[Rfam]
A member of the RNA family "Archaeal small subunit ribosomal RNA" from Methanopyrus kandleri, 538 nucleotides of a longer RNA. The literature on the family includes a 2001 paper in Science by Yusupov et al., "Crystal structure of the ribosome at 5.5 A resolution". It is one of the family's seed sequences. The organism belongs to Methanopyrus kandleri, within Archaea.
RNA sequence: ACUCCGGUUGAUCCUGCCGGAGGCCACCGCUAUCGGGGUCCGACUAAGCCAUGCAAGUCGAGGGCCGCCCGGCAAUGGGGGCGGCCCGGCGGACGGCUCAGUAACACGUGGGUAACCUACCCUCGGGACGGGGAUAACCCCGGCGAAAGUGGGGCUAAUCCCCGAUAGGCGGGGCGGCCUGGAACGGUCCUCCGCCGAAAGGGCCCGGGCCCAUGCCGCCCGGGUCCGCCCGAGGAUGGGCCUGCGGCCGAUUAGGUAGUUGGCGGGGUAACGGCCCGCCAAGCCGAUAAUCGGUACGGGCGGUGAGAGCCGGAGCCCGGAGACGGGGACUGAGACAAGGCCCCGGGCCCUACGGGGCGCAGCAGGCGCGAAACCUCCGCAAUGCGGGCAACCGCGACGGGGGGACCCCGAGUGCCGUCGGGGCAAAGCCCCGGCGGCUGUACCGGGGUGUAAAAAGCCCCGGGUAGAAAGCGGCGGGCAAGACCGCUGCCAGCCGCCGCGGUAAUAGCGGCGCCGCAAGUGGUGGCCGCUUUUAUUG
Numbered sequence: 001a002c003u004c005c006g007g008u009u010g011a012u013c014c015u016g017c018c019g020g021a022g023g024c025c026a027c028c029g030c031u032a033u034c035g036g037g038g039u040c041c042g043a044c045u046a047a048g049c050c051a052u053g054c055a056a057g058u059c060g061a062g063g064g065c066c067g068c069c070c071g072g073c074a075a076u077g078g079g080g081g082c083g084g085c086c087c088g089g090c091g092g093a094c095g096g097c098u099c100a101g102u103a104a105c106a107c108g109u110g111g112g113u114a115a116c117c118u119a120c121c122c123u124c125g126g127g128a129c130g131g132g133g134a135u136a137a138c139c140c141c142g143g144c145g146a147a148a149g150u151g152g153g154g155c156u157a158a159u160c161c162c163c164g165a166u167a168g169g170c171g172g173g174g175c176g177g178c179c180u181g182g183a184a185c186g187g188u189c190c191u192c193c194g195c196c197g198a199a200a201g202g203g204c205c206c207g208g209g210c211c212c213a214u215g216c217c218g219c220c221c222g223g224g225u226c227c228g229c230c231c232g233a234g235g236a237u238g239g240g241c242c243u244g245c246g247g248c249c250g251a252u253u254a255g256g257u258a259g260u261u262g263g264c265g266g267g268g269u270a271a272c273g274g275c276c277c278g279c280c281a282a283g284c285c286g287a288u289a290a291u292c293g294g295u296a297c298g299g300g301c302g303g304u305g306a307g308a309g310c311c312g313g314a315g316c317c318c319g320g321a322g323a324c325g326g327g328g329a330c331u332g333a334g335a336c337a338a339g340g341c342c343c344c345g346g347g348c349c350c351u352a353c354g355g356g357g358c359g360c361a362g363c364a365g366g367c368g369c370g371a372a373a374c375c376u377c378c379g380c381a382a383u384g385c386g387g388g389c390a391a392c393c394g395c396g397a398c399g400g401g402g403g404g405a406c407c408c409c410g411a412g413u414g415c416c417g418u419c420g421g422g423g424c425a426a427a428g429c430c431c432c433g434g435c436g437g438c439u440g441u442a443c444c445g446g447g448g449u450g451u452a453a454a455a456a457g458c459c460c461c462g463g464g465u466a467g468a469a470a471g472c473g474g475c476g477g478g479c480a481a482g483a484c485c486g487c488u489g490c491c492a493g494c495c496g497c498c499g500c501g502g503u504a505a506u507a508g509c510g511g512c513g514c515c516g517c518a519a520g521u522g523g524u525g526g527c528c529g530c531u532u533u534u535a536u537u538g
Base pairs, nucleotide, nucleotide: 004020005019006018007017008016022528023527024526025525026524027523028522029521030520031519033411034410035409036408037407038406039405040404041403042369048367049366050365052364053363054362057090058089059088062087063086064085065084066083067082068081069080070079097322098321099320107246108245109244110243111242112241113240116239117238121235122234123233124232125231126230127229129164130163131162132161138154139153140152141151142150144149169195170194171193172192173191174190176188178187179186202227203226248294249293250292255285256284257283260282261281262280263279264278265277266276267275297319298318299317300316301312302311303310304309324345325344326343327342328341347358348357349356350355375401377400378399379398383396384395385394386393387392414438415437416436417435418434419433420432421431422430423429443463444462445461446460447459448458449457471517472516473515474514475513476512484511485510486509487508493500494499